The family of this 83-nucleotide sequence from Homo sapiens is "mir-3622 microRNA precursor family". Rfam's curators put it in the seed alignment.
RNA sequence: AAUAGAGGGUGCACAGGCACGGGAGCUCAGGUGAGGCAGGGAGCUGAGCUCACCUGACCUCCCAUGCCUGUGCACCCUCUAUU
Numbered sequence: 001a002a003u004a005g006a007g008g009g010u011g012c013a014c015a016g017g018c019a020c021g022g023g024a025g026c027u028c029a030g031g032u033g034a035g036g037c038a039g040g041g042a043g044c045u046g047a048g049c050u051c052a053c054c055u056g057a058c059c060u061c062c063c064a065u066g067c068c069u070g071u072g073c074a075c076c077c078u079c080u081a082u083u
Stems, first nucleotide, its partner, number of pairs: 001083019021063005027057009037046003